[Rfam]
RNA sequence: UGAUCUGCUCGUAGAGCGCGAGCAGGGUAAAAUAAAGAAAGCUCAAACAGA
Numbered sequence: 001u002g003a004u005c006u007g008c009u010c011g012u013a014g015a016g017c018g019c020g021a022g023c024a025g026g027g028u029a030a031a032a033u034a035a036a037g038a039a040a041g042c043u044c045a046a047a048c049a050g051a
Stems, first nucleotide, its partner, number of pairs: 006024006014044004

The record is a 51-nucleotide sequence, which matches "6A RNA" in Rfam. The base pairs follow the family's consensus structure, which is taken from published work. The family's RNA type in Rfam is small RNA.